[Rfam]
RNA sequence: GAUGUUCGAAUAGCGCGGAUCGUAGUUCAGAAAGAUGUAACCGCGGCCUUGGUCGAUGAUGUGAAACAGCGGGUUCCAGUCGAACCAAGACAAAAGCACGGUCGGCAUCGCAUUCGCCACGAACAUCUUGCCGGAUGCUAUCAUGUUGAUACGGCUG
Numbered sequence: 001g002a003u004g005u006u007c008g009a010a011u012a013g014c015g016c017g018g019a020u021c022g023u024a025g026u027u028c029a030g031a032a033a034g035a036u037g038u039a040a041c042c043g044c045g046g047c048c049u050u051g052g053u054c055g056a057u058g059a060u061g062u063g064a065a066a067c068a069g070c071g072g073g074u075u076c077c078a079g080u081c082g083a084a085c086c087a088a089g090a091c092a093a094a095a096g097c098a099c100g101g102u103c104g105g106c107a108u109c110g111c112a113u114u115c116g117c118c119a120c121g122a123a124c125a126u127c128u129u130g131c132c133g134g135a136u137g138c139u140a141u142c143a144u145g146u147u148g149a150u151a152c153g154g155c156u157g
Stems, first nucleotide, its partner, number of pairs: 002038003006035002011033001014030001017027002040060001042058002044055004067157004071152001073085004089150001091148003095144001103134001105132001106130002110126001113122002